[Rfam]
RNA: TPP riboswitch aptamer (THI element)
Organism: Clostridium sp. CAG:75
RNA sequence: UAAUAAAAACAGGGGAGCUUGAAUAUAGCAGGCUGAGAGGAAGUGCUCAAACUUCGACCCUUUAACCUGAUGCGGAUAAUGCCGCCGUAGGAAGUCAUGAUAAGAAGAUU
Numbered sequence: 001u002a003a004u005a006a007a008a009a010c011a012g013g014g015g016a017g018c019u020u021g022a023a024u025a026u027a028g029c030a031g032g033c034u035g036a037g038a039g040g041a042a043g044u045g046c047u048c049a050a051a052c053u054u055c056g057a058c059c060c061u062u063u064a065a066c067c068u069g070a071u072g073c074g075g076a077u078a079a080u081g082c083c084g085c086c087g088u089a090g091g092a093a094g095u096c097a098u099g100a101u102a103a104g105a106a107g108a109u110u
Base pairs, nucleotide, nucleotide: 006098009095010094011061012060013059014058017033018032019031020030021029040055041054042053043052044051066091067090068089069088072085073084074083075082